The family of this 62-nucleotide RNA from Python bivittatus is "Small nucleolar RNA Z39". Taxonomically the source falls in Python (Eukaryota, Eumetazoa, Bifurcata, Serpentes). Rfam 15.1 lists 935 matches to the family in 520 species.

RNA sequence: GUACAGAUGAUGAUAGCAUAACAGCAUGAAUAACAAUGAUACUGUAAACGCUUUCUGAUGUA
Number, nucleotide and partner (000 for none) at each position: 001g000002u062003a061004c060005a059006g000007a000008u000009g000010a000011u000012g054013a053014u000015a052016g051017c050018a000019u000020a000021a000022c044023a043024g042025c000026a040027u039028g000029a000030a000031u000032a000033a000034c000035a000036a000037u000038g000039a027040u026041a000042c024043u023044g022045u000046a000047a000048a000049c000050g017051c016052u015053u013054u012055c000056u000057g000058a000059u005060g004061u003062a002
Record summary
By type it is a C/D-box small nucleolar RNA.